This 84-nucleotide RNA sequence belongs to the Rfam family "skipping-rope RNA". The sequence is in the family's curated seed alignment.
RNA sequence: GUUAGUUGAGGAUAGAAAGAGGCAGCUAUCACGCCAGAGAUGGUCUUAAAAGAGAUGUUGGGGUACGCCGUCCCACCAAUUAAU
Numbered sequence: 001g002u003u004a005g006u007u008g009a010g011g012a013u014a015g016a017a018a019g020a021g022g023c024a025g026c027u028a029u030c031a032c033g034c035c036a037g038a039g040a041u042g043g044u045c046u047u048a049a050a051a052g053a054g055a056u057g058u059u060g061g062g063g064u065a066c067g068c069c070g071u072c073c074c075a076c077c078a079a080u081u082a083a084u
Stems, first nucleotide, its partner, number of pairs: 001084008011030005021069003032052001033044004057076002060074003